A member of the RNA family "tRNA" from Clostridium manihotivorum, 73 nucleotides long. It is annotated as a transfer RNA. Rfam describes the family as follows. Transfer RNA (tRNA) molecules are approximately 80 nucleotides in length.

[Rfam]
RNA sequence: GUGGACGUAGUUCAGUUGGUAGAGCACCAGAUUGUGGCUCUGGGUGUCGUGGGUUCGAAUCCCAUCGUUCACC
Numbered sequence: 001g002u003g004g005a006c007g008u009a010g011u012u013c014a015g016u017u018g019g020u021a022g023a024g025c026a027c028c029a030g031a032u033u034g035u036g037g038c039u040c041u042g043g044g045u046g047u048c049g050u051g052g053g054u055u056c057g058a059a060u061c062c063c064a065u066c067g068u069u070c071a072c073c
Stems, first nucleotide, its partner, number of pairs: 001072007010025004027043005049065005